[Rfam]
Shown here is a 63-nucleotide RNA from Sphingobium sp. TKS, a member of the family "terC RNA".
By type it is a cis-regulatory element.
The base pairs follow the family's consensus structure, which is taken from published work.
It scores 61 bits against the family's covariance model.
RNA sequence: CUCGCGGACCGGGCCCCUCUGGCGCGCUGAUGUUGAAACAGCGCGUGAUGUCGGACCGCAUCG
Numbered sequence: 001c002u003c004g005c006g007g008a009c010c011g012g013g014c015c016c017c018u019c020u021g022g023c024g025c026g027c028u029g030a031u032g033u034u035g036a037a038a039c040a041g042c043g044c045g046u047g048a049u050g051u052c053g054g055a056c057c058g059c060a061u062c063g
Base pairs, nucleotide, nucleotide: 006057007056009054010053011052012051022046023045024044025043026042027041028040029039
Dot-bracket structure: .....((.((((.........((((((((.........))))))))....)))).))......